This 85-nucleotide RNA from Prunus yedoensis belongs to the Rfam family "MIR6288 microRNA precursor family". The family's consensus secondary structure was predicted with RNAalifold. Its family is annotated with miRNA-mediated post-transcriptional gene silencing and RISC complex in the Gene Ontology. A search with the family's covariance model found it, with a score of 74 bits.

RNA sequence: UCUCAACUAGUCACUUGUCAUUUUCUAAUUGGUUCUUAGUGUGUUUCUAAGAACCAAUUAGAAAAUGACAAGCAGUUAAUUGAGG
Numbered sequence: 001u002c003u004c005a006a007c008u009a010g011u012c013a014c015u016u017g018u019c020a021u022u023u024u025c026u027a028a029u030u031g032g033u034u035c036u037u038a039g040u041g042u043g044u045u046u047c048u049a050a051g052a053a054c055c056a057a058u059u060a061g062a063a064a065a066u067g068a069c070a071a072g073c074a075g076u077u078a079a080u081u082g083a084g085g
Base pairs, nucleotide, nucleotide: 002084003083004082005081006080008078009077010076011075014072015071016070017069018068019067020066021065022064023063024062025061026060027059028058029057030056031055032054033053034052035051036050037049038048039047